Shown here is a 53-nucleotide sequence from uncultured Faecalibacterium sp., a member of the family "RAGATH-5 RNA".
The sequence is in the family's curated seed alignment.

RNA sequence: CCGGAUAUUUUGGCAGGGCUGCACCGGGCAAAGCAACCCCGCCCCAUCUUCCC
Numbered sequence: 001c002c003g004g005a006u007a008u009u010u011u012g013g014c015a016g017g018g019c020u021g022c023a024c025c026g027g028g029c030a031a032a033g034c035a036a037c038c039c040c041g042c043c044c045c046a047u048c049u050u051c052c053c
Stems, first nucleotide, its partner, number of pairs: 001027004013042001016039003020035003
Overview:
Rfam links the family to the GO term catalytic activity. For this family Rfam cites "New classes of self-cleaving ribozymes revealed by comparative genomics analysis" (Weinberg et al., Nat Chem Biol, 2015). Pairs were carried over by alignment from the consensus structure, which is taken from published work.